Rfam assigns this 71-nucleotide RNA from Branchiostoma lanceolatum to the family "mir-192/215 microRNA precursor family". On this family, see Lagos-Quintana et al., RNA 2003: "New microRNAs from mouse and human". Rfam describes the family as follows. This family represents the human microRNA (miRNA) precursors mir-192 and mir-215. Animal miRNAs are transcribed as ~70nt precursors and subsequently processed by the Dicer enzyme to give a ~22nt product.
RNA sequence: UUAUAACCACGAACUAUGAAUUGAUAUGCAAUCUCCUUAUUUGCAUAUCAAUUCAUAGUUCGUGGUUAUAA
Numbered sequence: 001u002u003a004u005a006a007c008c009a010c011g012a013a014c015u016a017u018g019a020a021u022u023g024a025u026a027u028g029c030a031a032u033c034u035c036c037u038u039a040u041u042u043g044c045a046u047a048u049c050a051a052u053u054c055a056u057a058g059u060u061c062g063u064g065g066u067u068a069u070a071a
Base pairs, nucleotide, nucleotide: 001071002070003069004068005067006066007065008064010062011061013059014058015057016056018054019053020052021051022050023049024048025047026046027045028044029043030042031041
Rfam 15.1 lists 810 matches to the family in 628 species.